RNA sequence: AAUAGUUUUCUUUAAGCUACCAAGCUGUAUGAGGUAUUCCUCAUACAGCUUGGUAGCUUAAAGAAAACUAUU
Dot-bracket structure: (((((.((((((((((((((((((((.((((((......)))))).)))))))))))))))))))).)))))

mir-9/mir-79 microRNA precursor family: a 72-nucleotide sequence from Alligator sinensis. The organism belongs to Alligator, within Eukaryota. For this family Rfam cites "Identification of novel genes coding for small expressed RNAs" (Lagos-Quintana et al., Science, 2001). It scores 61 bits against the family's covariance model.